[Rfam]
RNA: FMN riboswitch aptamer (RFN element)
RNA sequence: CGACGUCUUCAGGGCGGGGUGCAACUCCCCACCGGCGGUAGGCCGCGGCGCAACACGCCCGGCAAGCCCGCGAGCGCCUCCGGAUCCCCGGAGGGUCAGCAGAUCCGGUCCAAGUCCGGAGCCGACGGUCACAGUCCGGAUGAAAGAAGACGGCC
Numbered sequence: 001c002g003a004c005g006u007c008u009u010c011a012g013g014g015c016g017g018g019g020u021g022c023a024a025c026u027c028c029c030c031a032c033c034g035g036c037g038g039u040a041g042g043c044c045g046c047g048g049c050g051c052a053a054c055a056c057g058c059c060c061g062g063c064a065a066g067c068c069c070g071c072g073a074g075c076g077c078c079u080c081c082g083g084a085u086c087c088c089c090g091g092a093g094g095g096u097c098a099g100c101a102g103a104u105c106c107g108g109u110c111c112a113a114g115u116c117c118g119g120a121g122c123c124g125a126c127g128g129u130c131a132c133a134g135u136c137c138g139g140a141u142g143a144a145a146g147a148a149g150a151c152g153g154c155c
Stems, first nucleotide, its partner, number of pairs: 004152007017029003031135002033124002035071004066122002074100002104120005126138003